Record summary
A. fumigatus sRNA Afu_309: a 348-nucleotide RNA sequence from Aspergillus terreus. The match comes from Rfam's covariance-model search (259 bits). The family's RNA type in Rfam is small RNA.

RNA sequence: UUCUUCAGAACACACCACGGAUCUGUGUCCAGCGAUCCCGUUCACGGAGCCAUUUCUCUCACGAGGAGUGGUCUUUGUGUUUCGGUUGAUUGCUGGACAGUUCGACGACUUAAGGAGCCACUGAUUCUUUGUGCUUGGUGGUUUGAUUUCCGGUCGACAGAUCUCAGAUUAAAGGUCGGCGCUGGGUGUUCACUCCGGUCUUGAGCUCCCUUUCUUUUUCCCCUCUGGGGAGGGAUCGGUGAGCUCGGCUGGAGGUCCUGGUUGUCUGACGGCGUCAUAUUCCUAGUCUCUUCACCGACUGGCCGUUGGCUAGUGAGGUUAGGGAAAAACCAUGACAGGCCAACAUUC
Numbered sequence: 001u002u003c004u005u006c007a008g009a010a011c012a013c014a015c016c017a018c019g020g021a022u023c024u025g026u027g028u029c030c031a032g033c034g035a036u037c038c039c040g041u042u043c044a045c046g047g048a049g050c051c052a053u054u055u056c057u058c059u060c061a062c063g064a065g066g067a068g069u070g071g072u073c074u075u076u077g078u079g080u081u082u083c084g085g086u087u088g089a090u091u092g093c094u095g096g097a098c099a100g101u102u103c104g105a106c107g108a109c110u111u112a113a114g115g116a117g118c119c120a121c122u123g124a125u126u127c128u129u130u131g132u133g134c135u136u137g138g139u140g141g142u143u144u145g146a147u148u149u150c151c152g153g154u155c156g157a158c159a160g161a162u163c164u165c166a167g168a169u170u171a172a173a174g175g176u177c178g179g180c181g182c183u184g185g186g187u188g189u190u191c192a193c194u195c196c197g198g199u200c201u202u203g204a205g206c207u208c209c210c211u212u213u214c215u216u217u218u219u220c221c222c223c224u225c226u227g228g229g230g231a232g233g234g235a236u237c238g239g240u241g242a243g244c245u246c247g248g249c250u251g252g253a254g255g256u257c258c259u260g261g262u263u264g265u266c267u268g269a270c271g272g273c274g275u276c277a278u279a280u281u282c283c284u285a286g287u288c289u290c291u292u293c294a295c296c297g298a299c300u301g302g303c304c305g306u307u308g309g310c311u312a313g314u315g316a317g318g319u320u321a322g323g324g325a326a327a328a329a330c331c332a333u334g335a336c337a338g339g340c341c342a343a344c345a346u347u348c
Base pairs, nucleotide, nucleotide: 019164020163021162022161023160024159025158026157027098028097029096030095031094032093034091035090036089037088038085039084040083043079044078046075047074049072050071052069053068054067055066056065057064058063106156107155108154109153110152113144114143115142117139118138119137175266177264181262182261183260184259185258186257197250198249199248200247203246204245205244206243207242208241209239210238271341272340273339274336275335276334277333278332287325288324289323290322291321294319295318296317301311302310303309304308